[Rfam]
RNA: Histidine operon leader
Organism: Vibrio eleionomae
RNA sequence: UCAUCACCAUCAUCAUCCCUAAUCAGUCUUUCGGGAGAUGUACGCAUACCCGGGAGGCAGGAAUCUCCCGGUGGUCAAAUCAGUUUAUAGCCAGAUUUCAAACCCUCGGGAGCAUUAAAUCCCGAGGGUUUUUUCAU
Numbered sequence: 001u002c003a004u005c006a007c008c009a010u011c012a013u014c015a016u017c018c019c020u021a022a023u024c025a026g027u028c029u030u031u032c033g034g035g036a037g038a039u040g041u042a043c044g045c046a047u048a049c050c051c052g053g054g055a056g057g058c059a060g061g062a063a064u065c066u067c068c069c070g071g072u073g074g075u076c077a078a079a080u081c082a083g084u085u086u087a088u089a090g091c092c093a094g095a096u097u098u099c100a101a102a103c104c105c106u107c108g109g110g111a112g113c114a115u116u117a118a119a120u121c122c123c124g125a126g127g128g129u130u131u132u133u134u135c136a137u
Base pairs, nucleotide, nucleotide: 009047010046011040012039013038014037017035018034019033021031049071050070052069053068054067055066056065057064100131101130102129103128104127105126106125107124108123109122110121111120